Background
The family of this 172-nucleotide RNA sequence from Populus trichocarpa is "MIR530 microRNA precursor family". The family has 3 seed sequences and 119 matches in Rfam 15.1. It is one of the family's seed sequences. Lineage of the source: Eukaryota > Embryophyta > Euphyllophyta > Salicaceae > Populus.
[Rfam]
RNA sequence: GCCAAUAUGUUGCCUUUAUCUGCAUUUGCACCUGCAUCUUUUGCGUUUGUUUUGUUUUUGACUCCACAAACAAAAUCAAGUUCUGUCGAUACAGUAUGUGGGACAAUUAGAUAUGGAAACUAAUAAGCUUAGUUGAGGUGCAGGUGCAAGUGCAGGUGAAUGCCAUUUUGGU
Numbered sequence: 001g002c003c004a005a006u007a008u009g010u011u012g013c014c015u016u017u018a019u020c021u022g023c024a025u026u027u028g029c030a031c032c033u034g035c036a037u038c039u040u041u042u043g044c045g046u047u048u049g050u051u052u053u054g055u056u057u058u059u060g061a062c063u064c065c066a067c068a069a070a071c072a073a074a075a076u077c078a079a080g081u082u083c084u085g086u087c088g089a090u091a092c093a094g095u096a097u098g099u100g101g102g103a104c105a106a107u108u109a110g111a112u113a114u115g116g117a118a119a120c121u122a123a124u125a126a127g128c129u130u131a132g133u134u135g136a137g138g139u140g141c142a143g144g145u146g147c148a149a150g151u152g153c154a155g156g157u158g159a160a161u162g163c164c165a166u167u168u169u170g171g172u
Base pairs, nucleotide, nucleotide: 001172002171003170004169005168007166008165009164012163013162015160016159017158018157019156020155021154022153023152024151025150026149027148028147029146030145031144032143033142034141035140036139037138038137039136050075051074052073053072054071055070056069057068059066060065